[Rfam]
RNA sequence: GAGUUACGAUCUGAUGCAAGGUUAAGCAGCGAAUGUGGAGCCGUAGCGAAAGCGAGUCUGAAUAGGGCGUUGAGUAUUUGGUCGUAGACCCGAAACCAGGUGAUCUACCCUUGGUCAGGUUGAAGUUCAGGUAACACUGAAUGGAGGACCGAACCGACUUACGUUGAAAAGUGAGCGGAUGAACUGAGGGUAGCGGAGAAAUUCCAAUCGAACUUGGAGAUAGCUGGUU
Numbered sequence: 001g002a003g004u005u006a007c008g009a010u011c012u013g014a015u016g017c018a019a020g021g022u023u024a025a026g027c028a029g030c031g032a033a034u035g036u037g038g039a040g041c042c043g044u045a046g047c048g049a050a051a052g053c054g055a056g057u058c059u060g061a062a063u064a065g066g067g068c069g070u071u072g073a074g075u076a077u078u079u080g081g082u083c084g085u086a087g088a089c090c091c092g093a094a095a096c097c098a099g100g101u102g103a104u105c106u107a108c109c110c111u112u113g114g115u116c117a118g119g120u121u122g123a124a125g126u127u128c129a130g131g132u133a134a135c136a137c138u139g140a141a142u143g144g145a146g147g148a149c150c151g152a153a154c155c156g157a158c159u160u161a162c163g164u165u166g167a168a169a170a171g172u173g174a175g176c177g178g179a180u181g182a183a184c185u186g187a188g189g190g191u192a193g194c195g196g197a198g199a200a201a202u203u204c205c206a207a208u209c210g211a212a213c214u215u216g217g218a219g220a221u222a223g224c225u226g227g228u229u
Stems, first nucleotide, its partner, number of pairs: 005086007013078005020042004026036003046053002056068004089227002092224001096217006105193011116181001118150004125142006154178003158175005195205003

Annotation:
A member of the RNA family "Bacterial large subunit ribosomal RNA" from Staphylococcus saccharolyticus, 229 nucleotides of a longer RNA. The family has 102 seed sequences and 51,934 matches in Rfam 15.1. Taxonomically the source falls in Staphylococcus (Bacteria, Bacillati, Bacilli, Caryophanales). The match comes from Rfam's covariance-model search (2991 bits).